[Rfam]
A member of the RNA family "Small nucleolar RNA SNORD42" from Varanus komodoensis, 65 nucleotides long. snoRNA U42 is found in intron 3 of the ribosomal protein L23a (RPL23a) gene in humans and is also present in mice. A search with the family's covariance model found it, with a score of 50 bits. Pairs were carried over by alignment from the consensus structure, which was predicted with PFOLD. NCBI's taxonomy places the organism under Eukaryota, Eumetazoa, Sauropsida, Episquamata, Varanus. Gene Ontology terms of the family: nucleolus and RNA processing. Rfam classes the family as a C/D-box small nucleolar RNA.
RNA sequence: GUGCAGAUGAUGGAAACUUUUUGGAACUGAGCGAGCUGAUGCGUUCAAAGGAACCACUGAUGCAC
Numbered sequence: 001g002u003g004c005a006g007a008u009g010a011u012g013g014a015a016a017c018u019u020u021u022u023g024g025a026a027c028u029g030a031g032c033g034a035g036c037u038g039a040u041g042c043g044u045u046c047a048a049a050g051g052a053a054c055c056a057c058u059g060a061u062g063c064a065c
Stems, first nucleotide, its partner, number of pairs: 001065005